[Rfam]
RNA: TPP riboswitch aptamer (THI element)
RNA sequence: GCGUCUGCUCCGGGGUGCCGGGCCUUGCGAGGCCCAGCUGAGAUGGUGACAACCGAACCCGAUGGACUUGAUCCGGAUAAUACCGGCGUAAGAAGAGCCAGGACGUACGUG
Dot-bracket structure: ......((((((((.(((.(((((......))))).))......(((....))))..)))).....((((..((((......))))..))))..)))).............
Numbered sequence: 001g002c003g004u005c006u007g008c009u010c011c012g013g014g015g016u017g018c019c020g021g022g023c024c025u026u027g028c029g030a031g032g033c034c035c036a037g038c039u040g041a042g043a044u045g046g047u048g049a050c051a052a053c054c055g056a057a058c059c060c061g062a063u064g065g066a067c068u069u070g071a072u073c074c075g076g077a078u079a080a081u082a083c084c085g086g087c088g089u090a091a092g093a094a095g096a097g098c099c100a101g102g103a104c105g106u107a108c109g110u111g
Stems, first nucleotide, its partner, number of pairs: 007098004011061004016055001017038002020035005045054003067092004073086004